[Rfam]
RNA sequence: CCACUUCAAAUUCGCCCUACAAUCCCUUAUGUUACAGAUGUUCCUUCGGGAACUAUGGACAUAAAUGCGCUCGUAAUAAACGGAUCGGACCCGGGGGCGGUACCCGGCGACUCCACCAAACAUGCUUCAUUUGGGCAUCAUGGGGUCGAAACAGGAUCGACGGACGUCUAAAGGGGUUAGCUUUGUCUCGGCUGUCUGCCACCGUUAUCGGCGAAAACUGUACAAUUGCAAAUGACAAUCGUGCUCCGGUAGCCCUGGCUGCGUAAGCAGUUCGGAAAACCGAAACUUAAGUCCUUUCGCCUAGCAGCGACUGGCGGGGUUCGCAGGUACCUGGCAACAGAAACCUGCACU
Dot-bracket structure: .......................................(((((....)))))...(((((.....((((((........((..(((...(((((.......)))))(((((((...........................)))))))............))).)).......))))..))..)))))[[[...((.(((.]]].....)))))......................................................................................................[[[[..((((((]]]]..........))))))...
Source information: Rfam assigns this 351-nucleotide sequence from Roseobacter sp. MED193 to the family "Alphaproteobacteria transfer-messenger RNA". For this family Rfam cites "Phylogenetic analysis of tmRNA secondary structure" (Williams and Bartel, RNA, 1996). From the family's description: Bacterial tmRNA, also known as 10Sa RNA or SsrA, is named for its dual tRNA and mRNA-like properties. Its family is annotated with RNA catabolic process in the Gene Ontology.